A member of the RNA family "pemK RNA" from Anaerosphaera aminiphila, 98 nucleotides long. It scores 59 bits against the family's covariance model. By type it is a cis-regulatory element.
[Rfam]
RNA sequence: AUAAUGAUACUCCCCUAUAGCCACCGUCCGAGCGUUAAAAGCGUCGCAGGCAAUGGGUAGGGUUUCGGCAGACCGUCGAAAGGGUGAAAUUCCCGUGG
Numbered sequence: 001a002u003a004a005u006g007a008u009a010c011u012c013c014c015c016u017a018u019a020g021c022c023a024c025c026g027u028c029c030g031a032g033c034g035u036u037a038a039a040a041g042c043g044u045c046g047c048a049g050g051c052a053a054u055g056g057g058u059a060g061g062g063u064u065u066c067g068g069c070a071g072a073c074c075g076u077c078g079a080a081a082g083g084g085u086g087a088a089a090u091u092c093c094c095g096u097g098g
Base pairs, nucleotide, nucleotide: 012095013062014061015060016059017058018057063081064080065079067077068076069075082094083093084092